The record is a 61-nucleotide sequence from Micromonospora maris, which matches "L31-Actinobacteria ribosomal protein leader" in Rfam.
RNA sequence: CCGGUUCCGGUUCACGCCCCUUGAUCGGCGCGCAGCGGCGCGCCAGGGCGACCCGGCGACC
Number, nucleotide and partner (000 for none) at each position: 001c000002c000003g061004g060005u059006u000007c056008c055009g054010g053011u000012u000013c000014a000015c050016g049017c048018c047019c046020c000021u000022u000023g000024a000025u000026c000027g000028g000029c000030g000031c000032g000033c000034a000035g000036c000037g000038g000039c000040g000041c000042g000043c000044c000045a000046g019047g018048g017049c016050g015051a000052c000053c010054c009055g008056g007057c000058g000059a005060c004061c003
Record summary: The sequence is in the family's curated seed alignment.